RNA sequence: CUAUUAGGGAGUUCGGCUAAAUGCAUCACUUUCUGUGAUAACGUCGAACUGACUUACCUCCUGUAAG
Numbered sequence: 001c002u003a004u005u006a007g008g009g010a011g012u013u014c015g016g017c018u019a020a021a022u023g024c025a026u027c028a029c030u031u032u033c034u035g036u037g038a039u040a041a042c043g044u045c046g047a048a049c050u051g052a053c054u055u056a057c058c059u060c061c062u063g064u065a066a067g
Base pairs, nucleotide, nucleotide: 011049012048013047014046015045016044017043025039026038027037028036029035053067054066055065056064057063
This 67-nucleotide sequence from Pueribacillus theae belongs to the Rfam family "Bacillaceae-1 RNA". The base pairs follow the family's consensus structure, which is taken from published work. It scores 60 bits against the family's covariance model. Taxonomically the source falls in Pueribacillus (Bacteria, Bacillati, Bacillota, Bacillaceae). It is annotated as a small RNA.